Annotation
The family of this 64-nucleotide RNA sequence from Pogona vitticeps is "Small Cajal body specific RNA ncR26".
[Rfam]
RNA sequence: UUUGCAAAUAGAUGAAGCACCGCUGAUGCAACAUUUGAUGUAUUACUGAGGGUUGUUUUUUUUU
Numbered sequence: 001u002u003u004g005c006a007a008a009u010a011g012a013u014g015a016a017g018c019a020c021c022g023c024u025g026a027u028g029c030a031a032c033a034u035u036u037g038a039u040g041u042a043u044u045a046c047u048g049a050g051g052g053u054u055g056u057u058u059u060u061u062u063u064u
Stems, first nucleotide, its partner, number of pairs: 012061001014057002017054001019053003022046001025043001027042001029040002032037001

A search with the family's covariance model found it, with a score of 39 bits.
Rfam links the family to the GO terms nucleolus, Cajal body and RNA processing.